Shown here is a 104-nucleotide sequence from Canis lupus, a member of the family "mir-8834 microRNA precursor family". Rfam links the family to the GO terms miRNA-mediated post-transcriptional gene silencing and RISC complex. A search with the family's covariance model found it, with a score of 44 bits. Rfam 15.1 lists 13,926 matches to the family in 17 species.
RNA sequence: AAGAACAACAACAGUGGCAGCGGCCAGCUCUGUAGCCCUGUAUUCAGUUCCUGCAGUAACUAUGGAGCUCUCCAUCUUCAGGGGCCUGGAUGCUCUGGGGGCAG
Numbered sequence: 001a002a003g004a005a006c007a008a009c010a011a012c013a014g015u016g017g018c019a020g021c022g023g024c025c026a027g028c029u030c031u032g033u034a035g036c037c038c039u040g041u042a043u044u045c046a047g048u049u050c051c052u053g054c055a056g057u058a059a060c061u062a063u064g065g066a067g068c069u070c071u072c073c074a075u076c077u078u079c080a081g082g083g084g085c086c087u088g089g090a091u092g093c094u095c096u097g098g099g100g101g102c103a104g
Base pairs, nucleotide, nucleotide: 002096003095004094006092007091009088010087012084016076017075020072022071023070026069027068028067029066030065031064032063033062034061038056039055040054
Dot-bracket structure: .(((.((.((.(...((..(.((..(((((((((...(((.............)))....))))))))))))..)).......)..))..)).)))........